Annotation: Shown here is a 103-nucleotide RNA sequence, a member of the family "c-di-GMP-II-GAG riboswitch aptamer". It is one of the family's seed sequences. On this family, see Weinberg et al., Proc Natl Acad Sci U S A 2017: "Bioinformatic analysis of riboswitch structures uncovers variant classes with altered ligand specificity". Pairs were carried over by alignment from the consensus structure, which is taken from published work. The family is grouped with related families in Rfam's "c-di-GMP_II riboswitch clan".
RNA sequence: CGGCCACCGGGAAGCAGAGAUCCUCGGACCGCACGACGGUCGCCUCCCCAGCUGCACCGCUGGGAUGUCCGAGGGGAGCGAGUGGCGAGACCGACCCGGCCCG
Numbered sequence: 001c002g003g004c005c006a007c008c009g010g011g012a013a014g015c016a017g018a019g020a021u022c023c024u025c026g027g028a029c030c031g032c033a034c035g036a037c038g039g040u041c042g043c044c045u046c047c048c049c050a051g052c053u054g055c056a057c058c059g060c061u062g063g064g065a066u067g068u069c070c071g072a073g074g075g076g077a078g079c080g081a082g083u084g085g086c087g088a089g090a091c092c093g094a095c096c097c098g099g100c101c102c103g
Stems, first nucleotide, its partner, number of pairs: 007099005014079002022074008038092002040088005